[Rfam]
RNA sequence: AGGACUAUACUUUCAGGGAUCAUUUCUGUAGUUGGUAACUAGAGGAGUGUGAUCGAAAGUGUCCGGCGUCACAAACCACGAGGAGGAGCAGCGUGUUCUCUCCUGAGCGCGAAGCGGGCGGGCGGUGCUGCUUGUGCAGGAGCCGCCCGUCAUUGAUGACCGUUCCCGUCCCACUUGGUUGGGUCUGGGAGGGAGAGAACACAGGCUGAGUGGU
Numbered sequence: 001a002g003g004a005c006u007a008u009a010c011u012u013u014c015a016g017g018g019a020u021c022a023u024u025u026c027u028g029u030a031g032u033u034g035g036u037a038a039c040u041a042g043a044g045g046a047g048u049g050u051g052a053u054c055g056a057a058a059g060u061g062u063c064c065g066g067c068g069u070c071a072c073a074a075a076c077c078a079c080g081a082g083g084a085g086g087a088g089c090a091g092c093g094u095g096u097u098c099u100c101u102c103c104u105g106a107g108c109g110c111g112a113a114g115c116g117g118g119c120g121g122g123c124g125g126u127g128c129u130g131c132u133u134g135u136g137c138a139g140g141a142g143c144c145g146c147c148c149g150u151c152a153u154u155g156a157u158g159a160c161c162g163u164u165c166c167c168g169u170c171c172c173a174c175u176u177g178g179u180u181g182g183g184u185c186u187g188g189g190a191g192g193g194a195g196a197g198a199a200c201a202c203a204g205g206c207u208g209a210g211u212g213g214u
Base pairs, nucleotide, nucleotide: 002040003039006035009032010031011030014028015027016026017025018024051063054061075214076213077212078211079210093202094201095200096199097198098197099196100195101194102193103192104191107163108162109161117151118150119149120148123145124144125143126142128139129138130137131136166188167187168185170183171182172181173180
Record summary: The record is a 214-nucleotide RNA sequence, which matches "Small nucleolar RNA U3" in Rfam. Rfam classes the family as a C/D-box small nucleolar RNA. About the family: Small nucleolar RNAs (snoRNAs) are involved in the processing and modification of rRNA in the nucleolus. On this family, see Zwieb, Nucleic Acids Res 1997: "The uRNA database". Its Rfam clan is "U3 clan".